[Rfam]
Vault RNA: a 98-nucleotide sequence from Pongo abelii. Rfam's curators write: This family of RNAs are found as part of the enigmatic vault ribonucleoprotein complex.
RNA sequence: GGGCUGGCUUUAGCUCAGCGGUUACUUCGACCAUUCUUUGAUUGCAACAACAACCUCUCUCGGUUGUUCGAGACCCGGGGGCGCUCUCCAGUCCUUUU
Numbered sequence: 001g002g003g004c005u006g007g008c009u010u011u012a013g014c015u016c017a018g019c020g021g022u023u024a025c026u027u028c029g030a031c032c033a034u035u036c037u038u039u040g041a042u043u044g045c046a047a048c049a050a051c052a053a054c055c056u057c058u059c060u061c062g063g064u065u066g067u068u069c070g071a072g073a074c075c076c077g078g079g080g081g082c083g084c085u086c087u088c089c090a091g092u093c094c095u096u097u098u
Base pairs, nucleotide, nucleotide: 002093003092004091005090006089007088013082014081015080016079019077020076021075026072027071028070029069030068
The family's RNA type in Rfam is non-coding RNA gene.